[Rfam]
RNA sequence: AAGGUUUUGCAUAACUGACGGAGUGUGGAUAACCACAAGGGAGUGCAAAAUGUCGAUGCCGACCGUCUGGGCAGAUAAA
Numbered sequence: 001a002a003g004g005u006u007u008u009g010c011a012u013a014a015c016u017g018a019c020g021g022a023g024u025g026u027g028g029a030u031a032a033c034c035a036c037a038a039g040g041g042a043g044u045g046c047a048a049a050a051u052g053u054c055g056a057u058g059c060c061g062a063c064c065g066u067c068u069g070g071g072c073a074g075a076u077a078a079a
Stems, first nucleotide, its partner, number of pairs: 004051009015040002017067005025036004057073004

Rfam assigns this 79-nucleotide RNA sequence from Eubacterium sp. CAG:274 to the family "ZMP/ZTP riboswitch aptamer (pfl RNA motif)". The family's consensus secondary structure is taken from published work.